[Rfam]
RNA sequence: AUGCAAAUAUUCUCACUGUUCUGAUUUUGUAAUAAUCAUCGCAGGUUAAACAAUCGCUCAUUAAGAACCAUGCAUGUGUCCCCAGACCUAGUUUUUUCCCUAGUGUGGUUUUAUAAAUGCUGGUAAUAAAA
Number, nucleotide and partner (000 for none) at each position: 001a000002u000003g057004c056005a000006a000007a000008u000009a000010u000011u000012c000013u000014c000015a000016c044017u043018g042019u041020u000021c000022u038023g037024a036025u035026u034027u000028u000029g000030u000031a000032a000033u000034a026035a025036u024037c023038a022039u000040c000041g019042c018043a017044g016045g000046u000047u000048a000049a000050a000051c000052a000053a000054u000055c000056g004057c003058u000059c000060a000061u000062u000063a000064a000065g000066a000067a124068c123069c122070a121071u000072g120073c119074a000075u000076g000077u000078g000079u000080c000081c000082c108083c107084a106085g000086a104087c000088c103089u102090a101091g100092u000093u000094u000095u000096u000097u000098c000099c000100c091101u090102a089103g088104u086105g000106u084107g083108g082109u000110u000111u000112u000113a000114u000115a000116a000117a000118u000119g073120c072121u070122g069123g068124u067125a000126a000127u000128a000129a000130a000131a000